[Rfam]
RNA sequence: GCGCGAAGGUCCCAGCAGAGAGGGGGAGAUCUCUAUAAUUGUAGCCUCUCUAACACAUAUACAAAUUCCUUCGCAGAGUUAUAUGCCGAAUCGUAGGAUGCCCAAAAAGCUUUUGUUUUGGACCAUUCUGAACCCUCGGCUACAUUCAA
Numbered sequence: 001g002c003g004c005g006a007a008g009g010u011c012c013c014a015g016c017a018g019a020g021a022g023g024g025g026g027a028g029a030u031c032u033c034u035a036u037a038a039u040u041g042u043a044g045c046c047u048c049u050c051u052a053a054c055a056c057a058u059a060u061a062c063a064a065a066u067u068c069c070u071u072c073g074c075a076g077a078g079u080u081a082u083a084u085g086c087c088g089a090a091u092c093g094u095a096g097g098a099u100g101c102c103c104a105a106a107a108a109g110c111u112u113u114u115g116u117u118u119u120g121g122a123c124c125a126u127u128c129u130g131a132a133c134c135c136u137c138g139g140c141u142a143c144a145u146u147c148a149a
Base pairs, nucleotide, nucleotide: 003074004073005072006071007070008069009068011020013018026050027049028048033041035039085140086139087138088137089136097127098126100124102121103120104119105118106117107116
The family of this 149-nucleotide RNA sequence from Quercus lobata is "Small nucleolar RNA snoR145". Taxonomically the source falls in Quercus (Eukaryota, Viridiplantae, Pentapetalae, rosids). It scores 103 bits against the family's covariance model. For this family Rfam cites "Mining small RNA sequencing data: a new approach to identify small nucleolar RNAs in Arabidopsis" (Chen and Wu, Nucleic Acids Res, 2009). The family's RNA type in Rfam is H/ACA-box small nucleolar RNA. Its family is annotated with RNA processing and nucleolus in the Gene Ontology.